This 85-nucleotide sequence from Phaedon cochleariae belongs to the Rfam family "mir-6012 microRNA precursor family". Its family is annotated with miRNA-mediated post-transcriptional gene silencing and RISC complex in the Gene Ontology.
RNA sequence: UGGAUAGGUUCACAGCCUGAUCUUGUUUCUGUGGAAAUGUGACUCAGAAUCAUUUCGGCGAUGAGAUCAGCCUGUUAAACUAUCC
Numbered sequence: 001u002g003g004a005u006a007g008g009u010u011c012a013c014a015g016c017c018u019g020a021u022c023u024u025g026u027u028u029c030u031g032u033g034g035a036a037a038u039g040u041g042a043c044u045c046a047g048a049a050u051c052a053u054u055u056c057g058g059c060g061a062u063g064a065g066a067u068c069a070g071c072c073u074g075u076u077a078a079a080c081u082a083u084c085c
Stems, first nucleotide, its partner, number of pairs: 002085005008080002012075004017070011034056006